A member of the RNA family "Molybdenum/Tungsten riboswitch aptamer (Moco RNA motif)" from Mitsuokella sp. oral taxon 131, 156 nucleotides long. Lineage of the source: Bacteria > Bacillati > Negativicutes > Selenomonadales > Mitsuokella sp. oral taxon 131. Gene Ontology terms of the family: regulation of gene expression, tungstate binding and molybdenum ion binding. The base pairs follow the family's consensus structure, which is taken from published work.
[Rfam]
Nucleotides: 156
Stems, first nucleotide, its partner, number of pairs: 003150002011142006019054004024049006033041003056079004082108006091100003109133002
Number, partner (000 for none) and nucleotide at each position: 001000c002000g003150u004149u005000c006000u007000u008000a009000u010000g011142u012141u013140u014139u015138u016137c017000g018000a019054g020053c021052c022051g023000u024049c025048g026047c027046a028045c029044c030000u031000g032000u033041g034040g035039u036000c037000u038000u039035g040034c041033u042000a043000u044029g045028g046027u047026g048025u049024g050000c051022c052021g053020g054019c055000c056079u057078g058077g059076c060000c061000g062000u063000g064000g065000g066000a067000u068000u069000u070000c071000c072000a073000c074000g075000a076059g077058c078057c079056g080000c081000g082108g083107g084106g085105g086104a087103g088000g089000c090000a091100c092099u093098g094000g095000a096000a097000a098093c099092g100091g101000a102000u103087c104086u105085c106084c107083c108082u109133g110132c111000c112000c113000g114000c115000a116000g117000g118000c119000g120000u121000u122000g123000c124000u125000c126000u127000g128000c129000a130000c131000u132110g133109c134000a135000a136000a137016g138015g139014a140013a141012a142011a143000c144000c145000g146000g147000c148000a149004g150003g151000a152000a153000a154000g155000c156000u